Notes
Rfam assigns this 86-nucleotide sequence from Stackebrandtia endophytica to the family "Guanidine-II riboswitch aptamer (mini-ykkC)". A search with the family's covariance model found it, with a score of 36 bits. On this family, see Sherlock et al., Biochemistry 2017: "Biochemical Validation of a Second Guanidine Riboswitch Class in Bacteria". The family's consensus secondary structure is taken from published work. Rfam describes the family as follows. Simpler in structure and has fewer highly conserved nucleotide positions than the ykkC-yxkD leader. Despite this each of its two stem-loop structures directly bind free guanidine. Therefore, mini-ykkC RNA motif represents a distinct class of guanidine-sensing RNAs. The source organism's lineage runs through Bacteria, Bacillati, Actinomycetota, Actinomycetes and Stackebrandtia.
RNA sequence: CGCCGAGGACGACGGCAGCGUGCAGCGUGACGACGACCGGUACUGGCACCUCGGCGGGUUCCUGUACCUCAACCGGGACGACCCGG
Numbered sequence: 001c002g003c004c005g006a007g008g009a010c011g012a013c014g015g016c017a018g019c020g021u022g023c024a025g026c027g028u029g030a031c032g033a034c035g036a037c038c039g040g041u042a043c044u045g046g047c048a049c050c051u052c053g054g055c056g057g058g059u060u061c062c063u064g065u066a067c068c069u070c071a072a073c074c075g076g077g078a079c080g081a082c083c084c085g086g
Stems, first nucleotide, its partner, number of pairs: 001056008073086005